[Rfam]
RNA: Purine riboswitch aptamer
RNA sequence: AACAAUUUCAUAAGCGUUUUUCAUAUAAUCGCGGGGAUAUGGCCUGCAAGUUUCUACCGGUUUACCGUAAAUAAACCGACUAUGAAAAGCACGUACGGUAGC
Numbered sequence: 001a002a003c004a005a006u007u008u009c010a011u012a013a014g015c016g017u018u019u020u021u022c023a024u025a026u027a028a029u030c031g032c033g034g035g036g037a038u039a040u041g042g043c044c045u046g047c048a049a050g051u052u053u054c055u056a057c058c059g060g061u062u063u064a065c066c067g068u069a070a071a072u073a074a075a076c077c078g079a080c081u082a083u084g085a086a087a088a089g090c091a092c093g094u095a096c097g098g099u100a101g102c
Base pairs, nucleotide, nucleotide: 018088019087020086021085022084023083024082025081029049031047032046033045034044035043058078059077060076061075062074063073064072